A member of the RNA family "Plastid-rps12 3UTR RNA" from Senna tora, 105 nucleotides long. By type it is a cis-regulatory element. Taxonomically the source falls in Senna (Eukaryota, Spermatophyta, Gunneridae, Cassieae). It scores 92 bits against the family's covariance model. Rfam's curators write: Plastid rpl20 is a non-coding RNA (ncRNA) recognised in plastids. It was found in the three prime untranslated region (3UTR) of rps12 gene, its 3UTR location sugest a role in transcript maduration.
RNA sequence: GGUUUCCGUUGGUGCAAAUCCAAUCACCUUGAUUUUUCAAUUUCAUAUGAGAAAGACUUCCCCAUUGGUAGCAAAUGCUUAUCCAUUAAGCAGGGGAAAUGCAAC
Numbered sequence: 001g002g003u004u005u006c007c008g009u010u011g012g013u014g015c016a017a018a019u020c021c022a023a024u025c026a027c028c029u030u031g032a033u034u035u036u037u038c039a040a041u042u043u044c045a046u047a048u049g050a051g052a053a054a055g056a057c058u059u060c061c062c063c064a065u066u067g068g069u070a071g072c073a074a075a076u077g078c079u080u081a082u083c084c085a086u087u088a089a090g091c092a093g094g095g096g097a098a099a100u101g102c103a104a105c
Base pairs, nucleotide, nucleotide: 009023010022011021012020060095061094062093064086065085067083068082069081070080071079